[Rfam]
RNA sequence: UCCGAUAAAGGUAAACCUCGGGAGACCGGGGGACACAAAGCCACGGGUCCUACCCAGAGAUGGAAGGACAGCCGGGUUGCCGAAG
Numbered sequence: 001u002c003c004g005a006u007a008a009a010g011g012u013a014a015a016c017c018u019c020g021g022g023a024g025a026c027c028g029g030g031g032g033a034c035a036c037a038a039a040g041c042c043a044c045g046g047g048u049c050c051u052a053c054c055c056a057g058a059g060a061u062g063g064a065a066g067g068a069c070a071g072c073c074g075g076g077u078u079g080c081c082g083a084a085g
Base pairs, nucleotide, nucleotide: 001085003082004081011036012035016031017030018029019028020027021026034071039078040077041076042075044074045073046072047069048068049067050066051065
Rfam assigns this 85-nucleotide RNA from Geomesophilobacter sediminis to the family "c-di-GMP-I-GGC riboswitch aptamer". Rfam 15.1 lists 1,298 matches to the family in 717 species. The source organism's lineage runs through Bacteria, Desulfuromonadia, Geobacterales, Geobacteraceae and Geomesophilobacter.